[Rfam]
Description: The record is a 112-nucleotide RNA sequence from Peribacillus loiseleuriae, which matches "c-di-GMP-I riboswitch aptamer" in Rfam. The match comes from Rfam's covariance-model search (70 bits).
RNA sequence: GGAAUAUAAAGGCAAACUACUCCGAAAGGAUAGGACGCAAAGCCUAGGGUCUAAGGUUUAGGUUGGGGGUCGAAAGUCCCUUGAUCUAAACUAUGAUCGCCUGGUUACCAAA
Numbered sequence: 001g002g003a004a005u006a007u008a009a010a011g012g013c014a015a016a017c018u019a020c021u022c023c024g025a026a027a028g029g030a031u032a033g034g035a036c037g038c039a040a041a042g043c044c045u046a047g048g049g050u051c052u053a054a055g056g057u058u059u060a061g062g063u064u065g066g067g068g069g070u071c072g073a074a075a076g077u078c079c080c081u082u083g084a085u086c087u088a089a090a091c092u093a094u095g096a097u098c099g100c101c102u103g104g105u106u107a108c109c110a111a112a
Stems, first nucleotide, its partner, number of pairs: 012038002017033003021030003041106004046102003049097003056091014
Dot-bracket structure: ...........((...(((.(((....))))))...))..((((.((((((....((((((((((((((........))))))))))))))...)))..)))))))......